The record is a 100-nucleotide RNA sequence from Flavobacterium sp. NKUCC04_CG, which matches "SAM-I/IV (S-adenosyl methionine) riboswitch aptamer" in Rfam. The base pairs follow the family's consensus structure, which is taken from published work.
[Rfam]
RNA sequence: UGCCAUUAUUAAGAAUUUCAUUUCAGUGAAAUAGCAACCUGCCUCAACAAGCAAGGUGCUGCCAAGGAUAAGCCAAGCAAUUGGAAAAAAUGUUGAUUUC
Numbered sequence: 001u002g003c004c005a006u007u008a009u010u011a012a013g014a015a016u017u018u019c020a021u022u023u024c025a026g027u028g029a030a031a032u033a034g035c036a037a038c039c040u041g042c043c044u045c046a047a048c049a050a051g052c053a054a055g056g057u058g059c060u061g062c063c064a065a066g067g068a069u070a071a072g073c074c075a076a077g078c079a080a081u082u083g084g085a086a087a088a089a090a091u092g093u094u095g096a097u098u099u100c
Base pairs, nucleotide, nucleotide: 006071007070008069009068010067015032016031017030018029019028020027033060034059035058038056039055040054041052042051047094073084074083075082076081
Its Rfam clan is "SAM clan".